Rfam assigns this 113-nucleotide sequence to the family "J750 non-coding RNA (containing SLSL761 and SL783)". By type it is a cis-regulatory element. Rfam's curators put it in the seed alignment. Pairs were carried over by alignment from the consensus structure, which was predicted with RNAfold.
RNA sequence: AUCCCUGUCCUAGGCGCCCCCCUAGGGGGCGUUGCCAGGGCUCUGGCACAUGGUGUUAGAGUUCUGGAGGACGGGGUCAACUAUGCAACAGGGAACUUGCCUGGUUGCUCCUU
Numbered sequence: 001a002u003c004c005c006u007g008u009c010c011u012a013g014g015c016g017c018c019c020c021c022c023u024a025g026g027g028g029g030c031g032u033u034g035c036c037a038g039g040g041c042u043c044u045g046g047c048a049c050a051u052g053g054u055g056u057u058a059g060a061g062u063u064c065u066g067g068a069g070g071a072c073g074g075g076g077u078c079a080a081c082u083a084u085g086c087a088a089c090a091g092g093g094a095a096c097u098u099g100c101c102u103g104g105u106u107g108c109u110c111c112u113u
Stems, first nucleotide, its partner, number of pairs: 001077005007072003013033006019026002035067015085108005091102003